[Rfam]
RNA sequence: UUGGCGUUGCGCAACUGGCGAUAAGACGGCACGGCCGAUCAUCCGGAACAGCUCGUCGAGGUGGACAACCACCGGGAAGCGCAACGUUCGCCGCCGUUCGCCUGGGCCCCCACG
Numbered sequence: 001u002u003g004g005c006g007u008u009g010c011g012c013a014a015c016u017g018g019c020g021a022u023a024a025g026a027c028g029g030c031a032c033g034g035c036c037g038a039u040c041a042u043c044c045g046g047a048a049c050a051g052c053u054c055g056u057c058g059a060g061g062u063g064g065a066c067a068a069c070c071a072c073c074g075g076g077a078a079g080c081g082c083a084a085c086g087u088u089c090g091c092c093g094c095c096g097u098u099c100g101c102c103u104g105g106g107c108c109c110c111c112a113c114g
Stems, first nucleotide, its partner, number of pairs: 003088010015076002017102005061072004093107003
The record is a 114-nucleotide RNA sequence from Thiomonas delicata, which matches "ZMP/ZTP riboswitch aptamer (pfl RNA motif)" in Rfam. The base pairs follow the family's consensus structure, which is taken from published work. Lineage of the source: Bacteria > Pseudomonadota > Betaproteobacteria > Burkholderiales > Thiomonas.